[Rfam]
Shown here is a 526-nucleotide RNA from Rhodofomes roseus, a member of the family "Nuclear RNase P".
The source organism's lineage runs through Eukaryota, Opisthokonta, Dikarya, Agaricomycotina and Rhodofomes.
Rfam's curators write: Ribonuclease P (RNase P) is a ubiquitous endoribonuclease, found in archaea, bacteria and eukarya as well as chloroplasts and mitochondria. Its best characterised activity is the generation of mature 5'-ends of tRNAs by cleaving the 5'-leader elements of precursor-tRNAs.
The family's consensus secondary structure is taken from published work.
A search with the family's covariance model found it, with a score of 64 bits.
RNA sequence: ACAGCGCAAAGGCCGCGAGGCUCACGCCGCACAGGACGCCUCCCGCAUUCUCCUUCGUGAGCGGGCUAAGGUCUGAGAGUCCCCCUCUAUCGGCCCCAGCAGGGUUCCAGCCUCACAGGCGGGCGCGGCGUUCCAGAAACACAGGUGCAUUCCUUAUCCCGGAGAAGCCGUAGCACGGCCCACCGAGACAAUUCAGCUGGUCUCGGCGUUUCCGCCUGUGGGUGAGGUCCGUCUUGGUUCUGAUAUGGCUUGGUCGCGUGAAGGUGGAGGGACCAUGGGAUGUGGCUUUGGAAGACGUCGCGGGGACAGGGCGGACACUGCGUUCGUACGCGCCGACUCCGUCUCGUCGUUGCAGCGCUCGGCUUCGGCUGGGGCGCAUAUGUGGCGGGGGAUCCUGGCAUAUUGCAACGACGGGAGUGGUCUAUGGUUUCAGUGCGUGUGGCGGUGUCCACCCCUCAGUUCACUUCGCGGCUCGCGAGGCACCAGCUGCUCUCGCGAAACUCGAUUCAGACUACUCUUGCGCUGU
Numbered sequence: 001a002c003a004g005c006g007c008a009a010a011g012g013c014c015g016c017g018a019g020g021c022u023c024a025c026g027c028c029g030c031a032c033a034g035g036a037c038g039c040c041u042c043c044c045g046c047a048u049u050c051u052c053c054u055u056c057g058u059g060a061g062c063g064g065g066c067u068a069a070g071g072u073c074u075g076a077g078a079g080u081c082c083c084c085c086u087c088u089a090u091c092g093g094c095c096c097c098a099g100c101a102g103g104g105u106u107c108c109a110g111c112c113u114c115a116c117a118g119g120c121g122g123g124c125g126c127g128g129c130g131u132u133c134c135a136g137a138a139a140c141a142c143a144g145g146u147g148c149a150u151u152c153c154u155u156a157u158c159c160c161g162g163a164g165a166a167g168c169c170g171u172a173g174c175a176c177g178g179c180c181c182a183c184c185g186a187g188a189c190a191a192u193u194c195a196g197c198u199g200g201u202c203u204c205g206g207c208g209u210u211u212c213c214g215c216c217u218g219u220g221g222g223u224g225a226g227g228u229c230c231g232u233c234u235u236g237g238u239u240c241u242g243a244u245a246u247g248g249c250u251u252g253g254u255c256g257c258g259u260g261a262a263g264g265u266g267g268a269g270g271g272a273c274c275a276u277g278g279g280a281u282g283u284g285g286c287u288u289u290g291g292a293a294g295a296c297g298u299c300g301c302g303g304g305g306a307c308a309g310g311g312c313g314g315a316c317a318c319u320g321c322g323u324u325c326g327u328a329c330g331c332g333c334c335g336a337c338u339c340c341g342u343c344u345c346g347u348c349g350u351u352g353c354a355g356c357g358c359u360c361g362g363c364u365u366c367g368g369c370u371g372g373g374g375c376g377c378a379u380a381u382g383u384g385g386c387g388g389g390g391g392a393u394c395c396u397g398g399c400a401u402a403u404u405g406c407a408a409c410g411a412c413g414g415g416a417g418u419g420g421u422c423u424a425u426g427g428u429u430u431c432a433g434u435g436c437g438u439g440u441g442g443c444g445g446u447g448u449c450c451a452c453c454c455c456u457c458a459g460u461u462c463a464c465u466u467c468g469c470g471g472c473u474c475g476c477g478a479g480g481c482a483c484c485a486g487c488u489g490c491u492c493u494c495g496c497g498a499a500a501c502u503c504g505a506u507u508c509a510g511a512c513u514a515c516u517c518u519u520g521c522g523c524u525g526u
Stems, first nucleotide, its partner, number of pairs: 001526004007520003012472007020062005034050003038046002073510005082305004092106005107123002110120003125301007144287003473498007